RNA sequence: AACUCACUAUGUGUAUAACACACACGUGUCGGCACAUUCGCCGGGGUGCCUGAGUGGUUUGCUCCAUUCGGGUCGGCGCAAUGGGACACGUGGAGGCAUAAC
Numbered sequence: 001a002a003c004u005c006a007c008u009a010u011g012u013g014u015a016u017a018a019c020a021c022a023c024a025c026g027u028g029u030c031g032g033c034a035c036a037u038u039c040g041c042c043g044g045g046g047u048g049c050c051u052g053a054g055u056g057g058u059u060u061g062c063u064c065c066a067u068u069c070g071g072g073u074c075g076g077c078g079c080a081a082u083g084g085g086a087c088a089c090g091u092g093g094a095g096g097c098a099u100a101a102c
Stems, first nucleotide, its partner, number of pairs: 023092008035083004040077004048073008
Rfam assigns this 102-nucleotide RNA sequence from Dickeya dadantii to the family "t44 RNA". The source organism's lineage runs through Bacteria, Pseudomonadati, Gammaproteobacteria, Pectobacteriaceae and Dickeya dadantii. By type it is a small RNA. A search with the family's covariance model found it, with a score of 79 bits. About the family: This family consists of a number of bacterial RNA genes of between 135 and 170 bases in length. The t44 gene has been identified in several species of enteric bacteria but homologs have also been identified in Pseudomonas and Coxiella species. The t44 gene is found between the map and rpsB genes in all species in the full alignment apart from Shigella flexneri. The function of this RNA is unknown.